Shown here is a 162-nucleotide RNA sequence from Caballeronia glathei, a member of the family "FMN riboswitch aptamer (RFN element)". The family has 146 seed sequences and 6,230 matches in Rfam 15.1. Lineage of the source: Bacteria > Pseudomonadati > Betaproteobacteria > Burkholderiaceae > Caballeronia. About the family: The RFN element is a highly conserved domain that is found frequently in the 5'-untranslated regions of prokaryotic mRNAs that encode for flavin mononucleotide (FMN) biosynthesis and transport proteins. This element is a metabolite-dependent riboswitch that directly binds FMN in the absence of proteins. In Bacillus subtilis, the riboswitch most likely controls gene expression by causing premature transcription termination within the 5' untranslated region of the ribDEAHT operon and precluding access to the ribosome-binding site of ypaA mRNA.The FMN riboswitch structure, reported in present an FMN-bound six-stem junction, adopts a butterfly-like scaffold, stapled together by opposingly directed but nearly identically folded peripheral domains. The base pairs follow the family's consensus structure, which is taken from published work.
[Rfam]
Nucleotides: 162
Stems, first nucleotide, its partner, number of pairs: 003160008017029003031142002033131002035074004069129002077107002111127005133145003
Number, partner (000 for none) and nucleotide at each position: 001000g002000u003160g004159c005158g006157u007156c008155u009154u010153c011000a012000g013000g014000g015000c016000g017029g018028g019027g020000c021000g022000a023000a024000a025000u026000u027019c028018c029017c030000c031142a032141c033131c034130g035074g036073c037072g038071g039000u040000g041000u042000g043000c044000g045000u046000g047000c048000g049000g050000a051000c052000c053000g054000a055000a056000a057000g058000g059000c060000c061000g062000c063000u064000c065000a066000c067000g068000a069129g070128c071038c072037c073036g074035c075000g076000a077107g078106c079000g080000c081000c082000c083000g084000u085000g086000c087000g088000g089000c090000a091000g092000u093000a094000u095000u096000c097000a098000c099000g100000g101000g102000g103000u104000c105000a106078g107077c108000a109000g110000a111127u112126c113125u114124g115123g116000u117000g118000c119000g120000a121000a122000g123115c124114c125113a126112g127111a128070g129069c130034c131033g132000a133145c134144g135143g136000u137000c138000a139000u140000a141032g142031u143135c144134c145133g146000g147000a148000u149000g150000g151000a152000a153010g154009a155008a156007g157006a158005u159004g160003u161000g162000c